[Rfam]
RNA sequence: UUCUUAUCAAGAGCAGGCGGAGGGACUGGCCCGAUGAUGCCCGGCAACCGACUUUUUAAAGCACGGUGCUAAUUCUUGCAGCAGUAUGCUGAGAGAUAAGAG
Numbered sequence: 001u002u003c004u005u006a007u008c009a010a011g012a013g014c015a016g017g018c019g020g021a022g023g024g025a026c027u028g029g030c031c032c033g034a035u036g037a038u039g040c041c042c043g044g045c046a047a048c049c050g051a052c053u054u055u056u057u058a059a060a061g062c063a064c065g066g067u068g069c070u071a072a073u074u075c076u077u078g079c080a081g082c083a084g085u086a087u088g089c090u091g092a093g094a095g096a097u098a099a100g101a102g
Stems, first nucleotide, its partner, number of pairs: 001102008013042001016041003022032003026078001028076002043070004048066002050062001053059001074094001079091005
Rfam assigns this 102-nucleotide sequence from Bacillus salacetis to the family "SAM riboswitch aptamer (S box leader)".
The organism belongs to Bacillus, within Bacteria.
The SAM riboswitch is found upstream of a number of genes which code for proteins involved in methionine or cysteine biosynthesis in Gram-positive bacteria.
The base pairs follow the family's consensus structure, which is taken from published work.
Gene Ontology term of the family: regulation of gene expression.